[Rfam]
RNA sequence: UUUCAACGAGCCGAGCCAUAGUGGCUGUUCGGUUGCGCGUCCCUUGCCGUAGGUGGCCAUGAGUGCCUGGGCUUC
Numbered sequence: 001u002u003u004c005a006a007c008g009a010g011c012c013g014a015g016c017c018a019u020a021g022u023g024g025c026u027g028u029u030c031g032g033u034u035g036c037g038c039g040u041c042c043c044u045u046g047c048c049g050u051a052g053g054u055g056g057c058c059a060u061g062a063g064u065g066c067c068u069g070g071g072c073u074u075c
Stems, first nucleotide, its partner, number of pairs: 014026004033069001038065002044059001047056003